Rfam assigns this 567-nucleotide part of an RNA from Hepatocystis sp. ex Piliocolobus tephrosceles to the family "Eukaryotic small subunit ribosomal RNA".
A reference for the family is Cannone et al. (2002), "The comparative RNA web (CRW) site: an online database of comparative sequence and structure information for ribosomal, intron, and other RNAs", BMC Bioinformatics.
The base pairs follow the family's consensus structure, which is taken from published work.

RNA sequence: CGCUCGUAGUUGAAUUUCAAAGAAUCAAUAUUAAAAGUUUUUACGAAUUCAAAAAAAAAAAAAAAAAAUGAAUGUAUUUUUUUUUUUUUUUCUGUGUUAUUUAACUAAUGAAAAAAAAAAAAAUUUGUCAUUUAUUUUUUUUUAAUUUUUUUUGUUUCUCGUUACUUUUAAACAUAAUGAUUCUUUUUAAAGUUUUUUUUUUUUUUAAUAUUUUUAUAUUAAAAAAAAAAAAAAAAACUUUGUUACUUUGAGUAAAUUAGAGUGUUUAAAGCAAACAUUUAGAGCAUUUUUUGAAUGUGUUUGAAUACUAAAGCAUGGAAUAACGACAUUGCAAAGAACUACCAUGAGUUUUUUUUUUUAGUUUUCUAAUAGUAGUUUUUUUUUAGUUACGAUUAAUAGGAGUAGUUGUUUGGGGCAUUUGUAUUCAGAUGUUAGAGGUGAAAUUCUUAGAUUUUCUGGAGACAAACUACUGCGAAAGCAUUUGCCUGGAAUAUUUCCAUUAAUCAAGAACGAAAGUUAAGGGAGUGAAGACGAUCAGAUACCGUCGUAAUCUUAACCAUAAACUAU
Numbered sequence: 001c002g003c004u005c006g007u008a009g010u011u012g013a014a015u016u017u018c019a020a021a022g023a024a025u026c027a028a029u030a031u032u033a034a035a036a037g038u039u040u041u042u043a044c045g046a047a048u049u050c051a052a053a054a055a056a057a058a059a060a061a062a063a064a065a066a067a068a069u070g071a072a073u074g075u076a077u078u079u080u081u082u083u084u085u086u087u088u089u090u091u092c093u094g095u096g097u098u099a100u101u102u103a104a105c106u107a108a109u110g111a112a113a114a115a116a117a118a119a120a121a122a123a124u125u126u127g128u129c130a131u132u133u134a135u136u137u138u139u140u141u142u143u144a145a146u147u148u149u150u151u152u153u154g155u156u157u158c159u160c161g162u163u164a165c166u167u168u169u170a171a172a173c174a175u176a177a178u179g180a181u182u183c184u185u186u187u188u189a190a191a192g193u194u195u196u197u198u199u200u201u202u203u204u205u206u207a208a209u210a211u212u213u214u215u216a217u218a219u220u221a222a223a224a225a226a227a228a229a230a231a232a233a234a235a236a237a238c239u240u241u242g243u244u245a246c247u248u249u250g251a252g253u254a255a256a257u258u259a260g261a262g263u264g265u266u267u268a269a270a271g272c273a274a275a276c277a278u279u280u281a282g283a284g285c286a287u288u289u290u291u292u293g294a295a296u297g298u299g300u301u302u303g304a305a306u307a308c309u310a311a312a313g314c315a316u317g318g319a320a321u322a323a324c325g326a327c328a329u330u331g332c333a334a335a336g337a338a339c340u341a342c343c344a345u346g347a348g349u350u351u352u353u354u355u356u357u358u359u360a361g362u363u364u365u366c367u368a369a370u371a372g373u374a375g376u377u378u379u380u381u382u383u384u385a386g387u388u389a390c391g392a393u394u395a396a397u398a399g400g401a402g403u404a405g406u407u408g409u410u411u412g413g414g415g416c417a418u419u420u421g422u423a424u425u426c427a428g429a430u431g432u433u434a435g436a437g438g439u440g441a442a443a444u445u446c447u448u449a450g451a452u453u454u455u456c457u458g459g460a461g462a463c464a465a466a467c468u469a470c471u472g473c474g475a476a477a478g479c480a481u482u483u484g485c486c487u488g489g490a491a492u493a494u495u496u497c498c499a500u501u502a503a504u505c506a507a508g509a510a511c512g513a514a515a516g517u518u519a520a521g522g523g524a525g526u527g528a529a530g531a532c533g534a535u536c537a538g539a540u541a542c543c544g545u546c547g548u549a550a551u552c553u554u555a556a557c558c559a560u561a562a563a564c565u566a567u
Stems, first nucleotide, its partner, number of pairs: 002511001004509002009504003399498004403493002406490002413487005420464002424460006431453001435446003472479002516557006525551002530546004